[Rfam]
Nucleotides: 116
Stems, first nucleotide, its partner, number of pairs: 007103002011065004016060001017032005039059005070095004076089004
Number, partner (000 for none) and nucleotide at each position: 001000c002000g003000c004000a005000a006000c007103g008102c009000a010000c011065a012064g013063g014062g015000g016060u017032g018031c019030u020029c021028g022000g023000g024000u025000a026000g027000c028021c029020g030019g031018g032017c033000u034000g035000a036000g037000a038000u039059g040058g041057u042056a043055a044000a045000c046000g047000a048000u049000g050000a051000a052000a053000c054000u055043u056042u057041g058040c059039c060016a061000a062014c063013c064012c065011u066000u067000g068000a069000a070095c071094c072093u073092g074000a075000u076089c077088u078087g079086g080000g081000u082000a083000a084000u085000g086079c087078c088077a089076g090000c091000g092073u093072a094071g095070g096000a097000a098000a099000a100000a101000g102008g103007c104000c105000u106000g107000a108000u109000g110000c111000c112000a113000u114000a115000u116000c
Rfam assigns this 116-nucleotide RNA sequence from SAR202 cluster bacterium AD-802-L14_MRT_200m to the family "TPP riboswitch aptamer (THI element)".
The base pairs follow the family's consensus structure, which is taken from published work.
It scores 59 bits against the family's covariance model.
Gene Ontology term of the family: thiamine pyrophosphate binding.
Taxonomically the source falls in SAR202 cluster (Bacteria, Bacillati, Chloroflexota, Dehalococcoidia).